[Rfam]
Rfam assigns this 158-nucleotide RNA sequence from Marchantia polymorpha to the family "U1 spliceosomal RNA". The source organism's lineage runs through Eukaryota, Marchantiophyta, Marchantiopsida, Marchantia and Marchantia polymorpha. The family has 100 seed sequences and 40,184 matches in Rfam 15.1. Its family is annotated with pre-mRNA 5'-splice site binding, mRNA 5'-splice site recognition and U1 snRNP in the Gene Ontology. The family's consensus secondary structure is taken from published work.
RNA sequence: AUACUUACCUGGGCGGGGUUCAUCGUUGAUCAAGAAGGACGAUGGCCUAGGACGAGCUGACCCAUUGCACCAAGGCUUGGCAAAUCCUAGCACUUCCUGUAUGGGAAAGUGCACGUCACAAUUUGUUACAGAGGGGCUCGCGUACGCGCGGCCCUUUA
Numbered sequence: 001a002u003a004c005u006u007a008c009c010u011g012g013g014c015g016g017g018g019u020u021c022a023u024c025g026u027u028g029a030u031c032a033a034g035a036a037g038g039a040c041g042a043u044g045g046c047c048u049a050g051g052a053c054g055a056g057c058u059g060a061c062c063c064a065u066u067g068c069a070c071c072a073a074g075g076c077u078u079g080g081c082a083a084a085u086c087c088u089a090g091c092a093c094u095u096c097c098u099g100u101a102u103g104g105g106a107a108a109g110u111g112c113a114c115g116u117c118a119c120a121a122u123u124u125g126u127u128a129c130a131g132a133g134g135g136g137c138u139c140g141c142g143u144a145c146g147c148g149c150g151g152c153c154c155u156u157u158a
Stems, first nucleotide, its partner, number of pairs: 012117004016048005023042005049088004056081003060077001062075002090112003094107002096104002132157005139150004